[Rfam]
RNA sequence: UUCUCCAGAUGACGAGAUUGGGGCAAAGCCUUUGGGACCCCCAUUCUUUGAUGAUAGGAGGA
Numbered sequence: 001u002u003c004u005c006c007a008g009a010u011g012a013c014g015a016g017a018u019u020g021g022g023g024c025a026a027a028g029c030c031u032u033u034g035g036g037a038c039c040c041c042c043a044u045u046c047u048u049u050g051a052u053g054a055u056a057g058g059a060g061g062a
Base pairs, nucleotide, nucleotide: 001062002061003060004059005058014048015047016046017045019043020042021041022040023039029036030035

A member of the RNA family "Selenocysteine insertion sequence 1" from Eptatretus burgeri, 62 nucleotides long. Rfam's curators write: The incorporation of selenocysteine into a protein sequence is directed by an in-frame UGA codon (usually a stop codon) within the coding region of the mRNA. Selenoprotein mRNAs contain a conserved secondary structure in the 3' UTR that is required for the distinction of UGA stop from UGA selenocysteine. The selenocysteine insertion sequence (SECIS) is around 60 nt in length and adopts a hairpin structure which is sufficiently well-defined and conserved to act as a computational screen for selenoprotein genes. Pairs were carried over by alignment from the consensus structure, which is taken from published work. The source organism's lineage runs through Eukaryota, Eumetazoa, Deuterostomia, Myxini and Eptatretus. Rfam 15.1 lists 3,793 matches to the family in 721 species. Rfam classes the family as a cis-regulatory element.